[Rfam]
RNA sequence: GCCCUCCAGCUCCCUUUCCCGUCAGAUCUGAACACUGGUCUUGGUGGUCCUAAAGGAGGAAAAGAAUGCUGAAGCUGGCCUCCCAGCCUUCUAGUUUGGUAUAUAGCAUGUGGGCUAGUUUCAAACAAGG
Numbered sequence: 001g002c003c004c005u006c007c008a009g010c011u012c013c014c015u016u017u018c019c020c021g022u023c024a025g026a027u028c029u030g031a032a033c034a035c036u037g038g039u040c041u042u043g044g045u046g047g048u049c050c051u052a053a054a055g056g057a058g059g060a061a062a063a064g065a066a067u068g069c070u071g072a073a074g075c076u077g078g079c080c081u082c083c084c085a086g087c088c089u090u091c092u093a094g095u096u097u098g099g100u101a102u103a104u105a106g107c108a109u110g111u112g113g114g115c116u117a118g119u120u121u122c123a124a125a126c127a128a129g130g
Stems, first nucleotide, its partner, number of pairs: 003059005019047005025040004075118007090108001092106001
Rfam assigns this 130-nucleotide RNA sequence from Octodon degus to the family "Small nucleolar RNA SNORA61". About the family: ACA61 is a member of the H/ACA class of snoRNA that guide the sites of modification of uridines to pseudouridines. A search with the family's covariance model found it, with a score of 127 bits. It is annotated as an H/ACA-box small nucleolar RNA. Pairs were carried over by alignment from the consensus structure, which was predicted with PFOLD. NCBI's taxonomy places the organism under Eukaryota, Metazoa, Euteleostomi, Tetrapoda, Octodon.